RNA sequence: CUAUCAUGCGCCGGUCAUUGGGGAGUAGCCGCUCUUCGUUCGCGAAGAGGCCCGCGUCAACACACUUGGCCCACCGGCCAUGGCGCAGGCAGCCGAUCCGCCUGGCAAGACCUUUGACCACACGCCUCCGACUGCGGCCGGGGAGGCGUGUGGUCAAUCGUCUUCGUCCGGCCCGG
Numbered sequence: 001c002u003a004u005c006a007u008g009c010g011c012c013g014g015u016c017a018u019u020g021g022g023g024a025g026u027a028g029c030c031g032c033u034c035u036u037c038g039u040u041c042g043c044g045a046a047g048a049g050g051c052c053c054g055c056g057u058c059a060a061c062a063c064a065c066u067u068g069g070c071c072c073a074c075c076g077g078c079c080a081u082g083g084c085g086c087a088g089g090c091a092g093c094c095g096a097u098c099c100g101c102c103u104g105g106c107a108a109g110a111c112c113u114u115u116g117a118c119c120a121c122a123c124g125c126c127u128c129c130g131a132c133u134g135c136g137g138c139c140g141g142g143g144a145g146g147c148g149u150g151u152g153g154u155c156a157a158u159c160g161u162c163u164u165c166g167u168c169c170g171g172c173c174c175g176g
Stems, first nucleotide, its partner, number of pairs: 033048003050090003054086006067080005097176001
Dot-bracket structure: ................................(((..........))).(((.((((((.......(((((....))))))))))).)))......(..............................................................................)
Notes:
The record is a 176-nucleotide RNA from Dyella thiooxydans, which matches "Manganese Mn2+ riboswitch aptamer (yybP-ykoY)" in Rfam. A search with the family's covariance model found it, with a score of 95 bits. Its family is annotated with manganese ion binding in the Gene Ontology.